[Rfam]
RNA: Fluoride riboswitch aptamer (crcB RNA motif)
Organism: Mucilaginibacter sp. PPCGB 2223
RNA sequence: UACUAAGGGGGUGAUGGUGUACCACCUAUUUGAACCGCUGCAAAAGCUGAUGACGCCUGCCAAAUA
Numbered sequence: 001u002a003c004u005a006a007g008g009g010g011g012u013g014a015u016g017g018u019g020u021a022c023c024a025c026c027u028a029u030u031u032g033a034a035c036c037g038c039u040g041c042a043a044a045a046g047c048u049g050a051u052g053a054c055g056c057c058u059g060c061c062a063a064a065u066a
Stems, first nucleotide, its partner, number of pairs: 010026004016057005037047003